mir-46/mir-47/mir-281 microRNA precursor family: an 82-nucleotide RNA sequence from Mizuhopecten yessoensis.
The literature on the family includes a 2003 paper in Dev Cell by Aravin et al., "The small RNA profile during Drosophila melanogaster development".
Rfam links the family to the GO terms RISC complex and miRNA-mediated post-transcriptional gene silencing.
RNA sequence: GACCCAUGAUGAUGAAGGGAGCACCCGUCGACAGUAGGAAAUACGUCACUGUCAUGGAGUUGCUUCCUUUACCACAAGAGUC
Numbered sequence: 001g002a003c004c005c006a007u008g009a010u011g012a013u014g015a016a017g018g019g020a021g022c023a024c025c026c027g028u029c030g031a032c033a034g035u036a037g038g039a040a041a042u043a044c045g046u047c048a049c050u051g052u053c054a055u056g057g058a059g060u061u062g063c064u065u066c067c068u069u070u071a072c073c074a075c076a077a078g079a080g081u082c
Base pairs, nucleotide, nucleotide: 014070015069016068017067018066020064021063022062025057026056027055030053031052032051034049035048
The family has 57 seed sequences and 307 matches in Rfam 15.1.